[Rfam]
RNA sequence: UCUGUGGACUGUCAUAACAAACGAAAGUAGCUUCGGCAAAAUCGGACAGGAAGAAGCAGAAA
Numbered sequence: 001u002c003u004g005u006g007g008a009c010u011g012u013c014a015u016a017a018c019a020a021a022c023g024a025a026a027g028u029a030g031c032u033u034c035g036g037c038a039a040a041a042u043c044g045g046a047c048a049g050g051a052a053g054a055a056g057c058a059g060a061a062a
Stems, first nucleotide, its partner, number of pairs: 001060005009049005022044003030037002
Record summary:
Shown here is a 62-nucleotide RNA from Peribacillus asahii, a member of the family "RAGATH-18 RNA". Rfam describes the family as follows. Actinobacteria, Firmicutes, Fusobacteria, Thermotogae (1 example).